[Rfam]
RNA sequence: UUAAUAGUUUUCUAGGGUUCCGCGGACGAUUGUUACGGACUGGACCGAGAGAAGACGCACAGCAUGCUGUGUUCACGGAGGGAUAAAAGCCCGGGAGAU
Numbered sequence: 001u002u003a004a005u006a007g008u009u010u011u012c013u014a015g016g017g018u019u020c021c022g023c024g025g026a027c028g029a030u031u032g033u034u035a036c037g038g039a040c041u042g043g044a045c046c047g048a049g050a051g052a053a054g055a056c057g058c059a060c061a062g063c064a065u066g067c068u069g070u071g072u073u074c075a076c077g078g079a080g081g082g083a084u085a086a087a088a089g090c091c092c093g094g095g096a097g098a099u
Stems, first nucleotide, its partner, number of pairs: 007056006015046002020043002022040001023037002026034001027032001057072006074094001076097001080092003
Overview:
Guanidine-I riboswitch aptamer: a 99-nucleotide RNA from Bacillus sp. FJAT-26390. The base pairs follow the family's consensus structure. NCBI's taxonomy places the organism under Bacteria, Bacillati, Bacillota, Bacilli, Bacillus. A search with the family's covariance model found it, with a score of 86 bits.